Rfam assigns this 118-nucleotide sequence from a Rhodospirillaceae bacterium to the family "Group II catalytic intron D1-D4-2". On this family, see Chu et al., EMBO J 2001: "Control of branch-site choice by a group II intron". Its family is annotated with Group II intron splicing in the Gene Ontology. The pairing is the family consensus, mapped onto this sequence. Lineage of the source: Bacteria > Pseudomonadota > Alphaproteobacteria > Rhodospirillales > Rhodospirillaceae.

[Rfam]
RNA sequence: GAAGGAGGGCCCUUCGGGUUCGGCGAUCAGGAGCCGAACCCAAGCUACCGCGAGCCGCCGUGGUCAAAAGCCAUGGUGGUGAGGGUUGCGGAAAAGUCGGGACGAUGAUCCCGGCAAG
Numbered sequence: 001g002a003a004g005g006a007g008g009g010c011c012c013u014u015c016g017g018g019u020u021c022g023g024c025g026a027u028c029a030g031g032a033g034c035c036g037a038a039c040c041c042a043a044g045c046u047a048c049c050g051c052g053a054g055c056c057g058c059c060g061u062g063g064u065c066a067a068a069a070g071c072c073a074u075g076g077u078g079g080u081g082a083g084g085g086u087u088g089c090g091g092a093a094a095a096g097u098c099g100g101g102a103c104g105a106u107g108a109u110c111c112c113g114g115c116a117a118g
Stems, first nucleotide, its partner, number of pairs: 001015005016041006023034002046118001048091006054080002057077003061073004096115006
Dot-bracket structure: (((((.....)))))((((((.((........)).))))))....(.((((((((.(((.((((.....)))).))).)).....))))))....((((((........))))))..)